The family of this 75-nucleotide sequence from Onchocerca volvulus is "mir-84 microRNA precursor family". The organism belongs to Onchocerca, within Eukaryota. The literature on the family includes a 2006 paper in Cell by Ruby et al., "Large-scale sequencing reveals 21U-RNAs and additional microRNAs and endogenous siRNAs in C. elegans". Pairs were carried over by alignment from the consensus structure, which was predicted with RNAalifold.
RNA sequence: GAGGUUGAUGAGGUAGUUUAUAAAGCUGCGAGAGUAGAUAUAAGCUCGCAGAUUUUAAGCUAUCUCGACUACCUU
Numbered sequence: 001g002a003g004g005u006u007g008a009u010g011a012g013g014u015a016g017u018u019u020a021u022a023a024a025g026c027u028g029c030g031a032g033a034g035u036a037g038a039u040a041u042a043a044g045c046u047c048g049c050a051g052a053u054u055u056u057a058a059g060c061u062a063u064c065u066c067g068a069c070u071a072c073c074u075u
Stems, first nucleotide, its partner, number of pairs: 003073003010066008022055003027050003